[Rfam]
RNA: Lysine riboswitch aptamer
RNA sequence: GAGUGAGGUAGAGGCGCGAAAACCAUGAGUACCUCCCUGAGAUCGGGCAUCUGUGACGGGUACGGGAAAGGGGAAUUCGCCGAAGUACGGAGAAAGGCCCGCUUCCUCCGUGCUGGGCCUGCGUUGAACAAGCGCAGGACUGUCAUCCGCGCAAUCACCCGUUGCCGGAUGGAGAGCUAUCUCACGA
Numbered sequence: 001g002a003g004u005g006a007g008g009u010a011g012a013g014g015c016g017c018g019a020a021a022a023c024c025a026u027g028a029g030u031a032c033c034u035c036c037c038u039g040a041g042a043u044c045g046g047g048c049a050u051c052u053g054u055g056a057c058g059g060g061u062a063c064g065g066g067a068a069a070g071g072g073g074a075a076u077u078c079g080c081c082g083a084a085g086u087a088c089g090g091a092g093a094a095a096g097g098c099c100c101g102c103u104u105c106c107u108c109c110g111u112g113c114u115g116g117g118c119c120u121g122c123g124u125u126g127a128a129c130a131a132g133c134g135c136a137g138g139a140c141u142g143u144c145a146u147c148c149g150c151g152c153a154a155u156c157a158c159c160c161g162u163u164g165c166c167g168g169a170u171g172g173a174g175a176g177c178u179a180u181c182u183c184a185c186g187a
Base pairs, nucleotide, nucleotide: 006182007181008180009179010178011177016080017079018078019077020076023073024072032065033064034062036060037059038058039057084114085113086112087111088110089109090108091107092106094104095103115141116140118138119137120136121135122134123133124132125131143172144171145170146169147168148167149166